[Rfam]
Shown here is a 76-nucleotide RNA from Crocodylus porosus, a member of the family "Mammalian CPEB3 ribozyme". NCBI's taxonomy places the organism under Eukaryota, Craniata, Tetrapoda, Archosauria, Crocodylus. The match comes from Rfam's covariance-model search (49 bits). The base pairs follow the family's consensus structure, which is taken from published work.

RNA sequence: GGUUGUAAGUUUAAGGCCAAAGCAGAAGCACUCAGGGUGCAGCCUGUCAGAUACCAAUGAAUCUGAGAUUUCUGCU
Numbered sequence: 001g002g003u004u005g006u007a008a009g010u011u012u013a014a015g016g017c018c019a020a021a022g023c024a025g026a027a028g029c030a031c032u033c034a035g036g037g038u039g040c041a042g043c044c045u046g047u048c049a050g051a052u053a054c055c056a057a058u059g060a061a062u063c064u065g066a067g068a069u070u071u072c073u074g075c076u
Stems, first nucleotide, its partner, number of pairs: 015044003021076007028040003048065005054059001